[Rfam]
RNA sequence: CGGGGACACGCAGUCUCCCCGCUAGACGGAGCUCCGUCCAAGCACUGC
Numbered sequence: 001c002g003g004g005g006a007c008a009c010g011c012a013g014u015c016u017c018c019c020c021g022c023u024a025g026a027c028g029g030a031g032c033u034c035c036g037u038c039c040a041a042g043c044a045c046u047g048c
Stems, first nucleotide, its partner, number of pairs: 001021006010048005025038005

About this RNA: This 48-nucleotide RNA sequence belongs to the Rfam family "chrB-b RNA".